The record is a 335-nucleotide RNA sequence from Machaerirhynchus nigripectus, which matches "7SK RNA" in Rfam. Rfam's curators write: 7SK was discovered as an abundant small nuclear RNA in the mid-70s but a possible function has only recently been suggested. Two independent studies have found that 7SK RNA binds the CDK9/cyclin T complex (known as elongation factor P-TEFb). It scores 159 bits against the family's covariance model. The base pairs follow the family's consensus structure, which is taken from published work. The family's RNA type in Rfam is non-coding RNA gene. Rfam 15.1 lists 49,373 matches to the family in 668 species. The literature on the family includes a 1991 paper in Mol Cell Biol by Wassarman and Steitz, "Structural analyses of the 7SK ribonucleoprotein (RNP), the most abundant human small RNP of unknown function".

RNA sequence: AGAUGUGAGGGCAAUCUGGCCGUGAGAUCUGAUACACCAUUGAUUGCACGGUUUGAUUUGACUGGUCUGGCUAGCUUAGGUGGGUGUCCCCUUCCUUCCUCAGCAUUCCAUGCGCAUUCCUCCUGGAGCUGUGUGCUUGGUUAAUGAGGACAGCCUCCCCAACAGACCCAGUGCUGUUCACUGGUCAAGGGUGUGUGGCAGCUGUGCUCUGCUGCUGGAAGCUCUAAGUAAGCUCAAGGUGAAUUUGUAGAAGACUGUAGGGUAGUCAAACAUCCAGUACUGAAGACACAUCCAAAUGAGAAGCUCCAUGCAGCAUUCUGCCAGUGGCUUUUUUU
Numbered sequence: 001a002g003a004u005g006u007g008a009g010g011g012c013a014a015u016c017u018g019g020c021c022g023u024g025a026g027a028u029c030u031g032a033u034a035c036a037c038c039a040u041u042g043a044u045u046g047c048a049c050g051g052u053u054u055g056a057u058u059u060g061a062c063u064g065g066u067c068u069g070g071c072u073a074g075c076u077u078a079g080g081u082g083g084g085u086g087u088c089c090c091c092u093u094c095c096u097u098c099c100u101c102a103g104c105a106u107u108c109c110a111u112g113c114g115c116a117u118u119c120c121u122c123c124u125g126g127a128g129c130u131g132u133g134u135g136c137u138u139g140g141u142u143a144a145u146g147a148g149g150a151c152a153g154c155c156u157c158c159c160c161a162a163c164a165g166a167c168c169c170a171g172u173g174c175u176g177u178u179c180a181c182u183g184g185u186c187a188a189g190g191g192u193g194u195g196u197g198g199c200a201g202c203u204g205u206g207c208u209c210u211g212c213u214g215c216u217g218g219a220a221g222c223u224c225u226a227a228g229u230a231a232g233c234u235c236a237a238g239g240u241g242a243a244u245u246u247g248u249a250g251a252a253g254a255c256u257g258u259a260g261g262g263u264a265g266u267c268a269a270a271c272a273u274c275c276a277g278u279a280c281u282g283a284a285g286a287c288a289c290a291u292c293c294a295a296a297u298g299a300g301a302a303g304c305u306c307c308a309u310g311c312a313g314c315a316u317u318c319u320g321c322c323a324g325u326g327g328c329u330u331u332u333u334u335u
Stems, first nucleotide, its partner, number of pairs: 002108002006102006014093001018091002024088002027085005033079001035074001037070003042067004046062001117171002121166002123140004128136002141162002148158003201271001203269001207265002210262001212260004222253002225250001228248005298335005303328003307324001